[Rfam]
The family of this 91-nucleotide RNA sequence from Solirubrobacter pauli is "Selenocysteine transfer RNA". The family's consensus secondary structure is taken from published work. Its Rfam clan is "tRNA clan".
RNA sequence: GGAGUGGCCGGGGCUGGUGCCCCAGCGAGUCUUCAAAACUCGUCAGCCGUCGUAACCCGGCGGUGGGUCGGUUCGAUUCCGGCGCCGCUCC
Numbered sequence: 001g002g003a004g005u006g007g008c009c010g011g012g013g014c015u016g017g018u019g020c021c022c023c024a025g026c027g028a029g030u031c032u033u034c035a036a037a038a039c040u041c042g043u044c045a046g047c048c049g050u051c052g053u054a055a056c057c058c059g060g061c062g063g064u065g066g067g068u069c070g071g072u073u074c075g076a077u078u079c080c081g082g083c084g085c086c087g088c089u090c091c
Stems, first nucleotide, its partner, number of pairs: 001091008010023005025043006046061004068082004